[Rfam]
RNA sequence: CAAGCAUGAAUGCUGCUAUUUUCCGCUUCUUCUUUUACUUUAGCACCUGAUUCCGGGAGGCUAGCGCGUGAAAGACGAAACGAAAAACAGCGCCUAGAAGCCUCCUGAUGGAGGCUUUUUUUGU
Numbered sequence: 001c002a003a004g005c006a007u008g009a010a011u012g013c014u015g016c017u018a019u020u021u022u023c024c025g026c027u028u029c030u031u032c033u034u035u036u037a038c039u040u041u042a043g044c045a046c047c048u049g050a051u052u053c054c055g056g057g058a059g060g061c062u063a064g065c066g067c068g069u070g071a072a073a074g075a076c077g078a079a080a081c082g083a084a085a086a087a088c089a090g091c092g093c094c095u096a097g098a099a100g101c102c103u104c105c106u107g108a109u110g111g112a113g114g115c116u117u118u119u120u121u122u123g124u
Base pairs, nucleotide, nucleotide: 015091016090017089020086021085022084024082025081027079028078029077031075032074033073035071036070037069038068041058044055059065097118098117099116100115101114102113103112104111105110
A member of the RNA family "Phenylalanine leader peptide" from Enterobacteriaceae bacterium RIT714, 124 nucleotides long.
The family's RNA type in Rfam is cis-regulatory leader.
A reference for the family is Gurvich et al. (2010), "Two groups of phenylalanine biosynthetic operon leader peptides genes: a high level of apparently incidental frameshifting in decoding Escherichia coli pheL", Nucleic Acids Res.